[Rfam]
RNA sequence: ACCUGUUGCGAGCGGACGCGUACGCGGUGCGCGCAACAACCAGAGACACACCGUGCCCGGGAAGAACGAGGCACUUCAGGGCGUU
Numbered sequence: 001a002c003c004u005g006u007u008g009c010g011a012g013c014g015g016a017c018g019c020g021u022a023c024g025c026g027g028u029g030c031g032c033g034c035a036a037c038a039a040c041c042a043g044a045g046a047c048a049c050a051c052c053g054u055g056c057c058c059g060g061g062a063a064g065a066a067c068g069a070g071g072c073a074c075u076u077c078a079g080g081g082c083g084u085u
Stems, first nucleotide, its partner, number of pairs: 004038007012030003017026002053074005058068002
Shown here is an 85-nucleotide RNA from Streptomyces scabichelini, a member of the family "nrdJ RNA".
Pairs were carried over by alignment from the consensus structure, which is taken from published work.